[Rfam]
RNA sequence: UAUAUUCCCAGACUCCGAGCCUGUUGUCCUAAGUCAUAUACGAUAUGGACACUGUGCCUGUAAUACUUUAUUACACAGGGAUAGCCGAGAAAUUGACUAUCCUCUCAUACUUAGAAAGGUGUCCUAUGCAUACUAUC
Numbered sequence: 001u002a003u004a005u006u007c008c009c010a011g012a013c014u015c016c017g018a019g020c021c022u023g024u025u026g027u028c029c030u031a032a033g034u035c036a037u038a039u040a041c042g043a044u045a046u047g048g049a050c051a052c053u054g055u056g057c058c059u060g061u062a063a064u065a066c067u068u069u070a071u072u073a074c075a076c077a078g079g080g081a082u083a084g085c086c087g088a089g090a091a092a093u094u095g096a097c098u099a100u101c102c103u104c105u106c107a108u109a110c111u112u113a114g115a116a117a118g119g120u121g122u123c124c125u126a127u128g129c130a131u132a133c134u135a136u137c
Base pairs, nucleotide, nucleotide: 006128011123012122013121015119016118019057020056022054023053025051026050027049028048029047033044034043035042060074061073062072063071064070078103079102080101081100082099083098084097086095087094088093104114105113
The family of this 137-nucleotide RNA sequence from Pasteurellaceae bacterium 15-036681 is "Molybdenum/Tungsten riboswitch aptamer (Moco RNA motif)". Rfam 15.1 lists 1,248 matches to the family in 836 species. For this family Rfam cites "Identification of 22 candidate structured RNAs in bacteria using the CMfinder comparative genomics pipeline" (Weinberg et al., Nucleic Acids Res, 2007).